The record is a 78-nucleotide sequence from Aminobacterium colombiense, which matches "NiCo (Nickel/Cobalt) riboswitch aptamer" in Rfam. The source organism's lineage runs through Bacteria, Synergistota, Synergistia, Aminobacteriaceae and Aminobacterium colombiense. The literature on the family includes a 2015 paper in Mol Cell by Furukawa et al., "Bacterial riboswitches cooperatively bind Ni(2+) or Co(2+) ions and control expression of heavy metal transporters". Gene Ontology terms of the family: metal ion homeostasis and cobalt ion binding. Its Rfam clan is "NiCo_riboswitches". The sequence is in the family's curated seed alignment.
[Rfam]
RNA sequence: UCCUUACAAGAUCAGGCGGCUUUUAGUGCGGCCGGGCCUCUUUUGAGGCAGUGGGAUUUCAAGACUCGCGGGACUUAG
Number, nucleotide and partner (000 for none) at each position: 001u000002c000003c000004u000005u000006a000007c000008a076009a075010g074011a000012u000013c072014a000015g033016g032017c031018g000019g027020c026021u000022u000023u000024u000025a000026g020027u019028g000029c000030g000031g017032c016033c015034g000035g000036g049037c048038c047039u046040c045041u000042u000043u000044u000045g040046a039047g038048g037049c036050a000051g069052u068053g067054g066055g065056a000057u000058u000059u000060c000061a000062a000063g000064a000065c055066u054067c053068g052069c051070g000071g000072g013073a000074c010075u009076u008077a000078g000